[Rfam]
RNA sequence: GCAUGCCCGUGCAUCGCGGUCUCUGCCCGAACCGACCCUGACGUACUUCCCCAACGCCAGGUUCGUGCUAUCGGACAGGGACCCCGGUGCAGGGGCGGCCCUCG
Numbered sequence: 001g002c003a004u005g006c007c008c009g010u011g012c013a014u015c016g017c018g019g020u021c022u023c024u025g026c027c028c029g030a031a032c033c034g035a036c037c038c039u040g041a042c043g044u045a046c047u048u049c050c051c052c053a054a055c056g057c058c059a060g061g062u063u064c065g066u067g068c069u070a071u072c073g074g075a076c077a078g079g080g081a082c083c084c085c086g087g088u089g090c091a092g093g094g095g096c097g098g099c100c101c102u103c104g
Stems, first nucleotide, its partner, number of pairs: 010091007018083002021080005027074004032067001033065003037061004042056003
This 104-nucleotide sequence from Mycobacterium noviomagense belongs to the Rfam family "mraW RNA". Lineage of the source: Bacteria > Actinomycetota > Actinomycetes > Mycobacteriales > Mycobacterium. The base pairs follow the family's consensus structure, which is taken from published work.